The family of this 198-nucleotide sequence from Rhodococcus erythropolis is "Actinobacteria sRNA Ms_IGR-5". It is one of the family's seed sequences. By type it is a small RNA. The literature on the family includes a 2013 paper in RNA by Li et al., "Identification of small RNAs in Mycobacterium smegmatis using heterologous Hfq".

RNA sequence: ACACAAGGAAGGAGGUGGUCUGAAAUUGAAGUACAGACGGACGCGUGAGGUGGCUGCCAGCUAGCCGCAAUCGCUGAUGGAAUUCACUUACCGCGUGAGCGGCCGGCGAAUCCCAGGCAGCCACCCGACCCCCGAGCCCCCGAUCAGUCCGACCGGGAUCCGCGCGAAAGCGUGGGUGUGGCUCGGGGGUCGCUUCGU
Numbered sequence: 001a002c003a004c005a006a007g008g009a010a011g012g013a014g015g016u017g018g019u020c021u022g023a024a025a026u027u028g029a030a031g032u033a034c035a036g037a038c039g040g041a042c043g044c045g046u047g048a049g050g051u052g053g054c055u056g057c058c059a060g061c062u063a064g065c066c067g068c069a070a071u072c073g074c075u076g077a078u079g080g081a082a083u084u085c086a087c088u089u090a091c092c093g094c095g096u097g098a099g100c101g102g103c104c105g106g107c108g109a110a111u112c113c114c115a116g117g118c119a120g121c122c123a124c125c126c127g128a129c130c131c132c133c134g135a136g137c138c139c140c141c142g143a144u145c146a147g148u149c150c151g152a153c154c155g156g157g158a159u160c161c162g163c164g165c166g167a168a169a170g171c172g173u174g175g176g177u178g179u180g181g182c183u184c185g186g187g188g189g190u191c192g193c194u195u196c197g198u
Stems, first nucleotide, its partner, number of pairs: 014058006060107003064103002067100002072095003126192013139157004144152001